[Rfam]
RNA sequence: CCCGCGGCUAGACGGAAAGACCCCGUGAACCUUUACUAUAGCUUCACACUGGACGCUGAUGUUGCCUGUGUAGGAUAGCUGGGAGGCUUUGAACUUUGGACGCCAGUUCGAAGGGAGCCAACCUUGAAAUACCAGCCUGGCAUCAUUGGCGUUCUCACUCAGGUCCGUUAUCCGGAUCGAGGACAGUGUGUGGUGGGUAGUUUGACUGGGGCGGUCUCCUCCUAAAGAGUAACGGAGGAGCACGAAGGUACCCUCAGCACGGUCGGACAUCGUGCAUUGAGUGCAAGAGCAUAAGGGUGCUUGACUGCGAGACAGACACGUCGAGCAGGUGCGAAAGCAGGUUCUAGUGAUCCGGUGGUUCUGUAUGGAAGGGCCAUCGCUCAACGGAUAAAAGGUACUCCGGGGAUAACAGGCUGAUACCGCCCAAGAGUUCACAUCGACGGCGGUGUUUGGCACCUCGAUGUCGGCUCAUCACAUCCUGGGGCUGAAGUCGGUCCCAAGGGUAUGGCUGUUCGCCAUUUAAAGUGGUACGCGAGCUGGGUUUAGAACGUCGUGAGACAGUUCGGUCCCUAUCUGCCGUGGGCGUU
Numbered sequence: 001c002c003c004g005c006g007g008c009u010a011g012a013c014g015g016a017a018a019g020a021c022c023c024c025g026u027g028a029a030c031c032u033u034u035a036c037u038a039u040a041g042c043u044u045c046a047c048a049c050u051g052g053a054c055g056c057u058g059a060u061g062u063u064g065c066c067u068g069u070g071u072a073g074g075a076u077a078g079c080u081g082g083g084a085g086g087c088u089u090u091g092a093a094c095u096u097u098g099g100a101c102g103c104c105a106g107u108u109c110g111a112a113g114g115g116a117g118c119c120a121a122c123c124u125u126g127a128a129a130u131a132c133c134a135g136c137c138u139g140g141c142a143u144c145a146u147u148g149g150c151g152u153u154c155u156c157a158c159u160c161a162g163g164u165c166c167g168u169u170a171u172c173c174g175g176a177u178c179g180a181g182g183a184c185a186g187u188g189u190g191u192g193g194u195g196g197g198u199a200g201u202u203u204g205a206c207u208g209g210g211g212c213g214g215u216c217u218c219c220u221c222c223u224a225a226a227g228a229g230u231a232a233c234g235g236a237g238g239a240g241c242a243c244g245a246a247g248g249u250a251c252c253c254u255c256a257g258c259a260c261g262g263u264c265g266g267a268c269a270u271c272g273u274g275c276a277u278u279g280a281g282u283g284c285a286a287g288a289g290c291a292u293a294a295g296g297g298u299g300c301u302u303g304a305c306u307g308c309g310a311g312a313c314a315g316a317c318a319c320g321u322c323g324a325g326c327a328g329g330u331g332c333g334a335a336a337g338c339a340g341g342u343u344c345u346a347g348u349g350a351u352c353c354g355g356u357g358g359u360u361c362u363g364u365a366u367g368g369a370a371g372g373g374c375c376a377u378c379g380c381u382c383a384a385c386g387g388a389u390a391a392a393a394g395g396u397a398c399u400c401c402g403g404g405g406a407u408a409a410c411a412g413g414c415u416g417a418u419a420c421c422g423c424c425c426a427a428g429a430g431u432u433c434a435c436a437u438c439g440a441c442g443g444c445g446g447u448g449u450u451u452g453g454c455a456c457c458u459c460g461a462u463g464u465c466g467g468c469u470c471a472u473c474a475c476a477u478c479c480u481g482g483g484g485c486u487g488a489a490g491u492c493g494g495u496c497c498c499a500a501g502g503g504u505a506u507g508g509c510u511g512u513u514c515g516c517c518a519u520u521u522a523a524a525g526u527g528g529u530a531c532g533c534g535a536g537c538u539g540g541g542u543u544u545a546g547a548a549c550g551u552c553g554u555g556a557g558a559c560a561g562u563u564c565g566g567u568c569c570c571u572a573u574c575u576g577c578c579g580u581g582g583g584c585g586u587u
Stems, first nucleotide, its partner, number of pairs: 001583008010575003014570002022404004027400002029396005035201004042193002045190004051154011063142004068137001078136005085119003094113008158181003162178006204216004217239006240385001242342002248300006254280002257275006281290002305328004311322003330339003353379007361372002413454003417451001418448007428438002465540001466538004470532001471529005478503002481498006505519005546564004550559003